[Rfam]
RNA sequence: UGUCAUCCCAGUGCUUGACACUGGGAUCCAGAAAGCUUAACUUUAAAUAAGUGGCUGCAUAAUAAAGACUAGAUCCCAGUGUCUGGGCACUGGGAUGACAAAAA
Numbered sequence: 001u002g003u004c005a006u007c008c009c010a011g012u013g014c015u016u017g018a019c020a021c022u023g024g025g026a027u028c029c030a031g032a033a034a035g036c037u038u039a040a041c042u043u044u045a046a047a048u049a050a051g052u053g054g055c056u057g058c059a060u061a062a063u064a065a066a067g068a069c070u071a072g073a074u075c076c077c078a079g080u081g082u083c084u085g086g087g088c089a090c091u092g093g094g095a096u097g098a099c100a101a102a103a104a
Base pairs, nucleotide, nucleotide: 001100002099003098004097005096006095007094008093009092010091011090012089013088014087015086016085017083018082019081020080021079022078023077024076025075026074027073028072030070031069